This 215-nucleotide RNA sequence from Bailinhaonella thermotolerans belongs to the Rfam family "Actinobacteria sRNA Ms_IGR-5". It scores 80 bits against the family's covariance model. NCBI's taxonomy places the organism under Bacteria, Actinomycetota, Actinomycetes, Streptosporangiales, Bailinhaonella.
[Rfam]
RNA sequence: GCACGCGGAAAGGAGGUGGUCCAAACAAUGGUUGAUCAUAAUUGGACUAGCGAGGUGGCUGUCCGCUAGGUCGCCGACUCCGGACCCGUCCGGGCGUUCGACGCCUGGCGAAUACACGGCAAUCACCGGACCCCCGAACCACCGGCGGGCAUUCGUGCCCAUUGGUCCAGCCGGUCCUCCCAAUCCCGGGAGGAGCAGUUCGGGGGUUUUUAUAU
Numbered sequence: 001g002c003a004c005g006c007g008g009a010a011a012g013g014a015g016g017u018g019g020u021c022c023a024a025a026c027a028a029u030g031g032u033u034g035a036u037c038a039u040a041a042u043u044g045g046a047c048u049a050g051c052g053a054g055g056u057g058g059c060u061g062u063c064c065g066c067u068a069g070g071u072c073g074c075c076g077a078c079u080c081c082g083g084a085c086c087c088g089u090c091c092g093g094g095c096g097u098u099c100g101a102c103g104c105c106u107g108g109c110g111a112a113u114a115c116a117c118g119g120c121a122a123u124c125a126c127c128g129g130a131c132c133c134c135c136g137a138a139c140c141a142c143c144g145g146c147g148g149g150c151a152u153u154c155g156u157g158c159c160c161a162u163u164g165g166u167c168c169a170g171c172c173g174g175u176c177c178u179c180c181c182a183a184u185c186c187c188g189g190g191a192g193g194a195g196c197a198g199u200u201c202g203g204g205g206g207u208u209u210u211u212a213u214a215u
Base pairs, nucleotide, nucleotide: 015063016062017061018060019059020058064110065109066108067107068106069105070104072103073102075100076098077097078096128209129208130207131206132205133204134203135202136201137200138199139198142190143189145187